Rfam assigns this 137-nucleotide RNA from Nanosynbacter lyticus to the family "Ribosomal protein L10 leader". Its family is annotated with regulation of gene expression in the Gene Ontology. It is annotated as a cis-regulatory leader.

RNA sequence: CAAUUCUAAGGAACAUUACCAAAGACAGUGGCGAUUUGUGUAAAAACAGAUGUAAAAAUGCCACCGAGGGAUGAAACUAACAGUUUUAUUUGACGUCUUUGGUAGUGCGAGAAUCAAAGACGUUUUUUGAUUCUCCA
Numbered sequence: 001c002a003a004u005u006c007u008a009a010g011g012a013a014c015a016u017u018a019c020c021a022a023a024g025a026c027a028g029u030g031g032c033g034a035u036u037u038g039u040g041u042a043a044a045a046a047c048a049g050a051u052g053u054a055a056a057a058a059u060g061c062c063a064c065c066g067a068g069g070g071a072u073g074a075a076a077c078u079a080a081c082a083g084u085u086u087u088a089u090u091u092g093a094c095g096u097c098u099u100u101g102g103u104a105g106u107g108c109g110a111g112a113a114u115c116a117a118a119g120a121c122g123u124u125u126u127u128u129g130a131u132u133c134u135c136c137a
Base pairs, nucleotide, nucleotide: 028064029063030062031061032060033059034051035050036049037048038047039046094122095121096120097119098118099117100116101115102114103113
Dot-bracket structure: ...........................((((((((((((......)))))).......)))))).............................((((((((((.........))))))))))...............